The family of this 79-nucleotide sequence from Hoskinsella hominis is "ZMP/ZTP riboswitch aptamer (pfl RNA motif)". It scores 56 bits against the family's covariance model. Lineage of the source: Bacteria > Erysipelotrichia > Erysipelotrichales > Erysipelotrichaceae > Hoskinsella.
[Rfam]
RNA sequence: AAGCAGUUAUACGACUGACGGAAGUGGAAUUGACCACAUGAAGUAUAAUGUAAAAGAGCCGACCGUCUGGGCAUAGAGU
Numbered sequence: 001a002a003g004c005a006g007u008u009a010u011a012c013g014a015c016u017g018a019c020g021g022a023a024g025u026g027g028a029a030u031u032g033a034c035c036a037c038a039u040g041a042a043g044u045a046u047a048a049u050g051u052a053a054a055a056g057a058g059c060c061g062a063c064c065g066u067c068u069g070g071g072c073a074u075a076g077a078g079u
Stems, first nucleotide, its partner, number of pairs: 003051003007048006015040001017067005024037004056074001058072003